[Rfam]
About this RNA
Rfam assigns this 63-nucleotide RNA sequence from Theropithecus gelada to the family "U7 small nuclear RNA". NCBI's taxonomy places the organism under Eukaryota, Teleostomi, Euteleostomi, Simiiformes, Theropithecus. The literature on the family includes a 1994 paper in Nucleic Acids Res by Spycher et al., "3' end processing of mouse histone pre-mRNA: evidence for additional base-pairing between U7 snRNA and pre-mRNA". About the family: Animal histone pre-mRNAs are spliced by a different mechanism than nuclear pre-mRNAs and self-splicing introns. The base pairs follow the family's consensus structure, which was predicted with PFOLD.
RNA sequence: CAGUGUUACAGCUCUUUUAGAAUUUGUUAGGCUGGGUGUACUGGCUCACGCCUGUAAUCCCAA
Numbered sequence: 001c002a003g004u005g006u007u008a009c010a011g012c013u014c015u016u017u018u019a020g021a022a023u024u025u026g027u028u029a030g031g032c033u034g035g036g037u038g039u040a041c042u043g044g045c046u047c048a049c050g051c052c053u054g055u056a057a058u059c060c061c062a063a
Stems, first nucleotide, its partner, number of pairs: 034060004039056003043052003